The record is a 72-nucleotide RNA sequence from Effusibacillus dendaii, which matches "tRNA" in Rfam. The source organism's lineage runs through Bacteria, Bacilli, Caryophanales, Alicyclobacillaceae and Effusibacillus. Transfer RNA (tRNA) molecules are approximately 80 nucleotides in length. Rfam classes the family as a transfer RNA.
RNA sequence: GCGGAAGUAGCUCAGCGGUAGAGCAUCGCCUUGCCAAGGCGAGGGCCGCGGGUUCGAUCCCCGUCUUCCGCU
Dot-bracket structure: (((((((..((((.......)))).(((((.......))))).....(((((.......)))))))))))).